Record summary
DUF3800-III RNA: a 107-nucleotide RNA. The family's RNA type in Rfam is small RNA.
RNA sequence: AGAGAGGUUUCGUAAAACCUGGUGACUUUGGCCGUCCGGAGGAUGGUCCUAGCUGCUUCUGAAAUGAAGCGGGUCAGAAUGAAAUCGGAGCCCAGGGUGAGCCCUCA
Numbered sequence: 001a002g003a004g005a006g007g008u009u010u011c012g013u014a015a016a017a018c019c020u021g022g023u024g025a026c027u028u029u030g031g032c033c034g035u036c037c038g039g040a041g042g043a044u045g046g047u048c049c050u051a052g053c054u055g056c057u058u059c060u061g062a063a064a065u066g067a068a069g070c071g072g073g074u075c076a077g078a079a080u081g082a083a084a085u086c087g088g089a090g091c092c093c094a095g096g097g098u099g100a101g102c103c104c105u106c107a
Base pairs, nucleotide, nucleotide: 002106003105004104006103007102009101010100011099012098018096019095020094021093022092026090027089028088033045034044035043036042037041053072054071055070056069057068058067059066